[Rfam]
RNA: U1 spliceosomal RNA
Organism: Chelonoidis abingdonii
RNA sequence: AUAUGGAAGAUGCCUAAGAUAACAUGAUCACGAAGGUGGUUUUCCUAGGGUGAGGCUCAUCCAUUGCACUGCGGGUGUGCUGACCCCUGCGAUUUCCCCAAAUGCGGGAAACUUGACUGCAUAAUUUGUGGUAGUGGGGGACUGCAUUCAUGCUCUCCCCGG
Numbered sequence: 001a002u003a004u005g006g007a008a009g010a011u012g013c014c015u016a017a018g019a020u021a022a023c024a025u026g027a028u029c030a031c032g033a034a035g036g037u038g039g040u041u042u043u044c045c046u047a048g049g050g051u052g053a054g055g056c057u058c059a060u061c062c063a064u065u066g067c068a069c070u071g072c073g074g075g076u077g078u079g080c081u082g083a084c085c086c087c088u089g090c091g092a093u094u095u096c097c098c099c100a101a102a103u104g105c106g107g108g109a110a111a112c113u114u115g116a117c118u119g120c121a122u123a124a125u126u127u128g129u130g131g132u133a134g135u136g137g138g139g140g141a142c143u144g145c146a147u148u149c150a151u152g153c154u155c156u157c158c159c160c161g162g
Base pairs, nucleotide, nucleotide: 006120008118009117010046012044017043018042019041021040023038024037025036047088048087049086050085052084054081055080056079058077059076060075061074062073090115091114092113093111094110095109097107098106135161136160137159138158139157141156144153145152146151
Dot-bracket structure: .....(.(((.(....(((.(.(((..........))).))))).)((((.(.(((.(((((..........))))).)))..))))).((((((.((.......)).))).))).)).)..............(((((.(..(((....)))..)))))).